The family of this 126-nucleotide RNA sequence from Streptomyces lunaelactis is "Streptomyces RNA 3920". From the family's description: Identified by deep sequencing of transcriptome at the end of exponential growth phase. Sequencing size consistent with northern blot size. Streptomyces specific. Lineage of the source: Bacteria > Bacillati > Actinomycetes > Streptomycetaceae > Streptomyces. The family's RNA type in Rfam is small RNA. Pairs were carried over by alignment from the consensus structure. A reference for the family is Vockenhuber et al. (2011), "Deep sequencing-based identification of small non-coding RNAs in Streptomyces coelicolor", RNA Biol.
RNA sequence: GAUAGGUCGCUGUCGCUACUGUGAUUGGACACUGACGCACAGUCAACUAGCCUUGGUCGCGCGGUUCUUGGCGGGAGGAACCGGGGGCGGUCCGAGCCAUGAGGGGGGAGGCUCGGGCCGCCUGUU
Numbered sequence: 001g002a003u004a005g006g007u008c009g010c011u012g013u014c015g016c017u018a019c020u021g022u023g024a025u026u027g028g029a030c031a032c033u034g035a036c037g038c039a040c041a042g043u044c045a046a047c048u049a050g051c052c053u054u055g056g057u058c059g060c061g062c063g064g065u066u067c068u069u070g071g072c073g074g075g076a077g078g079a080a081c082c083g084g085g086g087g088c089g090g091u092c093c094g095a096g097c098c099a100u101g102a103g104g105g106g107g108g109a110g111g112c113u114c115g116g117g118c119c120g121c122c123u124g125u126u
Base pairs, nucleotide, nucleotide: 001014002013003012004011005010015051016050017049018048021032022031023030033045034044035043036042058075060073061072062071064069077082086122087121088120089119090118091117092116093115094114095113096112097111098110100107